A member of the RNA family "Small nucleolar RNA SNORA14" from Ophiophagus hannah, 129 nucleotides long. Its family is annotated with nucleolus and RNA processing in the Gene Ontology. ACA14 is a member of the H/ACA class of snoRNA that guide the sites of modification of uridines to pseudouridines. By type it is an H/ACA-box small nucleolar RNA. NCBI's taxonomy places the organism under Eukaryota, Unidentata, Colubroidea, Elapinae, Ophiophagus.
[Rfam]
RNA sequence: CUGCCUUUUCAAUAUUUCCUAGGAUAUUUCAAUUUUCUAGGAGAGGGGUGGGUGCUAAAUAAAAUAAAAUAAAAUAAAAAGGAUGGUCUUGUAGGAAGCUACAAGACCAUCCUUUUUAUUUUAUUUUAU
Numbered sequence: 001c002u003g004c005c006u007u008u009u010c011a012a013u014a015u016u017u018c019c020u021a022g023g024a025u026a027u028u029u030c031a032a033u034u035u036u037c038u039a040g041g042a043g044a045g046g047g048g049u050g051g052g053u054g055c056u057a058a059a060u061a062a063a064a065u066a067a068a069a070u071a072a073a074a075u076a077a078a079a080a081g082g083a084u085g086g087u088c089u090u091g092u093a094g095g096a097a098g099c100u101a102c103a104a105g106a107c108c109a110u111c112c113u114u115u116u117u118a119u120u121u122u123a124u125u126u127u128a129u
Base pairs, nucleotide, nucleotide: 003055004054006052008048009047010046017042018041019040020039021038022037024035064129065128066127067126068125069124070123079114080113081112082111083110084109085108087106088105089104090103091102092101093100094099